[Rfam]
RNA sequence: AAGCCGCAUGUGAGAAUUGGAUGAAAUUGAACCCACGCUUGUGGUUUGGGGUUCAAUUUCCUCCAAUAUCUUACAUUCGGCCU
Number, nucleotide and partner (000 for none) at each position: 001a000002a000003g000004c080005c079006g078007c000008a076009u000010g000011u073012g072013a071014g070015a000016a067017u066018u065019g064020g063021a062022u000023g060024a059025a058026a057027u056028u055029g054030a053031a000032c051033c050034c000035a000036c000037g000038c000039u000040u000041g000042u000043g000044g000045u000046u000047u000048g000049g000050g033051g032052u000053u030054c029055a028056a027057u026058u025059u024060c023061c000062u021063c020064c019065a018066a017067u016068a000069u000070c014071u013072u012073a011074c000075a000076u008077u000078c006079g005080g004081c000082c000083u000
RNA: MIR2275 microRNA precursor family